RNA sequence: GUAAGCAACCCACGGCUUUAAGCCGUGGGCUUCGACCAGACUCGAACUGAAAGAAGCCAAGCUUACCAGACUAUCAGUAGUUUACUACUGGGUUCACGUUAAGUGUUAAAGAACUCACCUUGGGAUGCGUAGCUAGUUCCAAGCUCUGAAACGAAGCAGCUUAAUUGACGUAAUGGUUUAAAGUCAGUGCUGACAAGCGAAAGUACUGGAUGUGAACAGAGUCGUUCGCGAAGCGUCUCCCAAGGGGAGACGCUAACAUUAC
Numbered sequence: 001g002u003a004a005g006c007a008a009c010c011c012a013c014g015g016c017u018u019u020a021a022g023c024c025g026u027g028g029g030c031u032u033c034g035a036c037c038a039g040a041c042u043c044g045a046a047c048u049g050a051a052a053g054a055a056g057c058c059a060a061g062c063u064u065a066c067c068a069g070a071c072u073a074u075c076a077g078u079a080g081u082u083u084a085c086u087a088c089u090g091g092g093u094u095c096a097c098g099u100u101a102a103g104u105g106u107u108a109a110a111g112a113a114c115u116c117a118c119c120u121u122g123g124g125a126u127g128c129g130u131a132g133c134u135a136g137u138u139c140c141a142a143g144c145u146c147u148g149a150a151a152c153g154a155a156g157c158a159g160c161u162u163a164a165u166u167g168a169c170g171u172a173a174u175g176g177u178u179u180a181a182a183g184u185c186a187g188u189g190c191u192g193a194c195a196a197g198c199g200a201a202a203g204u205a206c207u208g209g210a211u212g213u214g215a216a217c218a219g220a221g222u223c224g225u226u227c228g229c230g231a232a233g234c235g236u237c238u239c240c241c242a243a244g245g246g247g248a249g250a251c252g253c254u255a256a257c258a259u260u261a262c
Stems, first nucleotide, its partner, number of pairs: 001066006010029002012026002015023002030056004069223004075219001076089005092217009102207001115149002119143008130255004152197001157192004164188002167185003171181001173179001